[Rfam]
RNA sequence: ACAGACAAUAGAGGUGCAAAAAACAGGGUAAUCGACUUCGGAGCUGCAGGGGGCUCGAUGGAGGUCGGUGAAGGGGUUUUUUGCCGAAGGUGCGCGCUCCUCCUGUGGCGCGUUCCUGGGGGUGCCGUGUAAGCUGCACAACUGUCAUGUCGUAUUGCAGACAUGGAGCGCUAUUGGUCAU
Numbered sequence: 001a002c003a004g005a006c007a008a009u010a011g012a013g014g015u016g017c018a019a020a021a022a023a024c025a026g027g028g029u030a031a032u033c034g035a036c037u038u039c040g041g042a043g044c045u046g047c048a049g050g051g052g053g054c055u056c057g058a059u060g061g062a063g064g065u066c067g068g069u070g071a072a073g074g075g076g077u078u079u080u081u082u083g084c085c086g087a088a089g090g091u092g093c094g095c096g097c098u099c100c101u102c103c104u105g106u107g108g109c110g111c112g113u114u115c116c117u118g119g120g121g122g123u124g125c126c127g128u129g130u131a132a133g134c135u136g137c138a139c140a141a142c143u144g145u146c147a148u149g150u151c152g153u154a155u156u157g158c159a160g161a162c163a164u165g166g167a168g169c170g171c172u173a174u175u176g177g178u179c180a181u
Base pairs, nucleotide, nucleotide: 006176007175008174009173010172011171016084017083018082019081020080021079022078023077024076031069032068033067034066035065036064037063038062088117089116090115092113093112094111095110096109097108098107118143119142122139123138124137125136127134128133145166146165147164148163149162150161151160
The record is a 181-nucleotide RNA sequence from Vescimonas fastidiosa, which matches "Lysine riboswitch aptamer" in Rfam.
On this family, see Mandal et al., Cell 2003: "Riboswitches Control Fundamental Biochemical Pathways in Bacillus subtilis and Other Bacteria".
Riboswitches are metabolite binding domains within certain messenger RNAs that serve as precision sensors for their corresponding targets. Allosteric rearrangement of mRNA structure is mediated by ligand binding, and this results in modulation of gene expression. This family includes riboswitches that sense lysine in a number of genes involved in lysine metabolism, including lysC.
A search with the family's covariance model found it, with a score of 99 bits.